RNA sequence: AAACAGCCUCCUAUGUAUUGGAUCUUUGGCAGUUUUGGCCCCCAAUGCCACUUUUAACUUAGUCUUCGUUGACGUGGCACCCAUAUCCCUUAAGUGAGGUGCCACGUGUCGACCAUUGUGGGUGCCACGUCAGCAAAGACUAAGUCAAAAGUGGCCUUUGGGGCCAAAAUUGUCAAAGAUCCAAUACAUAGGGGGCUGUUU
Dot-bracket structure: ((.(((((...(((((((((((((((((((((((((((((((.((..........................((.(((((((((((...............................))))))))))).))..........................)).)))))))))))))))))))))))))))))))...))))).))
A member of the RNA family "MIR2619 microRNA precursor family" from Medicago truncatula, 201 nucleotides long. A search with the family's covariance model found it, with a score of 171 bits. The organism belongs to Medicago, within Eukaryota.